RNA sequence: AGUCUCUGGAGUCGACGCAGUUAACCGAGAAGUUCUUUCGCCUUUUACUAAAGAAUUCCGUGCGUCGACUCGGUUUAUGAGUUUAUCUCAAUUUUUGGACUCCCGACCGCAAGGAAG
Numbered sequence: 001a002g003u004c005u006c007u008g009g010a011g012u013c014g015a016c017g018c019a020g021u022u023a024a025c026c027g028a029g030a031a032g033u034u035c036u037u038u039c040g041c042c043u044u045u046u047a048c049u050a051a052a053g054a055a056u057u058c059c060g061u062g063c064g065u066c067g068a069c070u071c072g073g074u075u076u077a078u079g080a081g082u083u084u085a086u087c088u089c090a091a092u093u094u095u096u097g098g099a100c101u102c103c104c105g106a107c108c109g110c111a112a113g114g115a116a117g
Base pairs, nucleotide, nucleotide: 004081005080006079009071010070011069012068013067014066015065016064017063018062019061031057032056033055034054035053036052037051038050103117
RNA: U5 spliceosomal RNA
Organism: Steinernema hermaphroditum